[Rfam]
RNA: Small nucleolar RNA SNORA38
RNA sequence: CCCUCCAACAAAGGGAUGUCCAUGUGGUUUUCUGUCUUUGGACAUGUAAGAAUUGGAAGCAAAGAAAUGUUGACUUGAAGACGACUGGGGUCAGCCUUCUCCCUGCAGGCUCAAGAUCAACCAUCCCAGAAUG
Numbered sequence: 001c002c003c004u005c006c007a008a009c010a011a012a013g014g015g016a017u018g019u020c021c022a023u024g025u026g027g028u029u030u031u032c033u034g035u036c037u038u039u040g041g042a043c044a045u046g047u048a049a050g051a052a053u054u055g056g057a058a059g060c061a062a063a064g065a066a067a068u069g070u071u072g073a074c075u076u077g078a079a080g081a082c083g084a085c086u087g088g089g090g091u092c093a094g095c096c097u098u099c100u101c102c103c104u105g106c107a108g109g110c111u112c113a114a115g116a117u118c119a120a121c122c123a124u125c126c127c128a129g130a131a132u133g
Base pairs, nucleotide, nucleotide: 002059004057005056006055016045017044018043019042020041021040026032027031072125073124075123093111094110095109096108097107099105